Overview: The record is a 192-nucleotide RNA from Paenibacillus albus, which matches "Lysine riboswitch aptamer" in Rfam. The base pairs follow the family's consensus structure, which is taken from published work. The match comes from Rfam's covariance-model search (102 bits). The source organism's lineage runs through Bacteria, Bacillati, Bacilli, Caryophanales and Paenibacillus.
RNA sequence: AGAUGAGGUAGAGGUCGCGAUGUUGAAGAGUACAUCCGGGGGAAGUCGAGUAUAGACUAUUGAUCCCGGGUUUAAAGGCAACUUCGCCGAAGUAAGCGCGCCAUACUAGCCGUGCUUGCUGGGGCCGUAUCCGAAAGGAGCGGAACUGUCAUGCUGUUCUUCCUAGGAACCGUAUGUUGAGCUAUCUUGUCA
Numbered sequence: 001a002g003a004u005g006a007g008g009u010a011g012a013g014g015u016c017g018c019g020a021u022g023u024u025g026a027a028g029a030g031u032a033c034a035u036c037c038g039g040g041g042g043a044a045g046u047c048g049a050g051u052a053u054a055g056a057c058u059a060u061u062g063a064u065c066c067c068g069g070g071u072u073u074a075a076a077g078g079c080a081a082c083u084u085c086g087c088c089g090a091a092g093u094a095a096g097c098g099c100g101c102c103a104u105a106c107u108a109g110c111c112g113u114g115c116u117u118g119c120u121g122g123g124g125c126c127g128u129a130u131c132c133g134a135a136a137g138g139a140g141c142g143g144a145a146c147u148g149u150c151a152u153g154c155u156g157u158u159c160u161u162c163c164u165a166g167g168a169a170c171c172g173u174a175u176g177u178u179g180a181g182c183u184a185u186c187u188u189g190u191c192a
Stems, first nucleotide, its partner, number of pairs: 006187006017087004022082004034071008091120010102109001121147002125143004130138002150176005
Dot-bracket structure: .....((((((.....((((.((((........((((((((......................)))))))).......)))).))))...((((((((((.(......).))))))))))((..((((.((.....)).))))..))..(((((.................))))).....)))))).....